The record is a 48-nucleotide RNA from Jannaschia sp. CCS1, which matches "SAM/SAH riboswitch aptamer" in Rfam.
Pairs were carried over by alignment from the consensus structure, which is taken from published work.

RNA sequence: ACUCCUCCACAACGGCUUCCUGACGUGGGGGAUUAUUUGAAUGGAGCA
Numbered sequence: 001a002c003u004c005c006u007c008c009a010c011a012a013c014g015g016c017u018u019c020c021u022g023a024c025g026u027g028g029g030g031g032a033u034u035a036u037u038u039g040a041a042u043g044g045a046g047c048a
Stems, first nucleotide, its partner, number of pairs: 004031007013022002015047003019044002
Dot-bracket structure: ...(((((((..(([[[.[[))..)))))))...........]]]]].